Purine riboswitch aptamer: a 101-nucleotide RNA sequence from Paenibacillus albus. The family is grouped with related families in Rfam's "Purine riboswitches".

RNA sequence: AAAAUUAAAUCCAUUUACACUCGUAUAUACUUGGGAAUCAGGCCCGAGAGUAUCUACCCGAGAACCAUAAUUUUCGGACUACGAGCCUACGCUGGAAAGAU
Numbered sequence: 001a002a003a004a005u006u007a008a009a010u011c012c013a014u015u016u017a018c019a020c021u022c023g024u025a026u027a028u029a030c031u032u033g034g035g036a037a038u039c040a041g042g043c044c045c046g047a048g049a050g051u052a053u054c055u056a057c058c059c060g061a062g063a064a065c066c067a068u069a070a071u072u073u074u075c076g077g078a079c080u081a082c083g084a085g086c087c088u089a090c091g092c093u094g095g096a097a098a099g100a101u
Stems, first nucleotide, its partner, number of pairs: 020085006030048006058077007